[Rfam]
RNA: Small nucleolar RNA snoR77
RNA sequence: AGGCAACCUCCUUGCUACAAUUAUAUGGCAUGAGGGGUGUUAUACUGCUCGUAAAUCAAUUGCUUUUGCUCUUCAGAUUUGCUGAGAUUAUCUCUGAAGCUGGUCUAGUAAGCUCUAGUACAAU
Numbered sequence: 001a002g003g004c005a006a007c008c009u010c011c012u013u014g015c016u017a018c019a020a021u022u023a024u025a026u027g028g029c030a031u032g033a034g035g036g037g038u039g040u041u042a043u044a045c046u047g048c049u050c051g052u053a054a055a056u057c058a059a060u061u062g063c064u065u066u067u068g069c070u071c072u073u074c075a076g077a078u079u080u081g082c083u084g085a086g087a088u089u090a091u092c093u094c095u096g097a098a099g100c101u102g103g104u105c106u107a108g109u110a111a112g113c114u115c116u117a118g119u120a121c122a123a124u
Stems, first nucleotide, its partner, number of pairs: 002041004007037002009034001011032001013030005063118002068113003075106005081100003086092002